[Rfam]
RNA sequence: AUUAAAUAAUGUUCUUUAACUCAUAUAUCCUUGAUAAUUGGAUCAGGGGUUUCUACGAAGCAACCGGAAUUGCUUCUCUAUGAGCCAGAGAUGGCCAUAG
Numbered sequence: 001a002u003u004a005a006a007u008a009a010u011g012u013u014c015u016u017u018a019a020c021u022c023a024u025a026u027a028u029c030c031u032u033g034a035u036a037a038u039u040g041g042a043u044c045a046g047g048g049g050u051u052u053c054u055a056c057g058a059a060g061c062a063a064c065c066g067g068a069a070u071u072g073c074u075u076c077u078c079u080a081u082g083a084g085c086c087a088g089a090g091a092u093g094g095c096c097a098u099a100g
Stems, first nucleotide, its partner, number of pairs: 020084006029048007057076007

The family of this 100-nucleotide RNA sequence from Desulfosporosinus youngiae is "Purine riboswitch aptamer". Taxonomically the source falls in Desulfosporosinus youngiae (Bacteria, Bacillota, Eubacteriales, Desulfosporosinus). A search with the family's covariance model found it, with a score of 66 bits. Its family is annotated with purine nucleobase biosynthetic process in the Gene Ontology. The base pairs follow the family's consensus structure, which is taken from published work.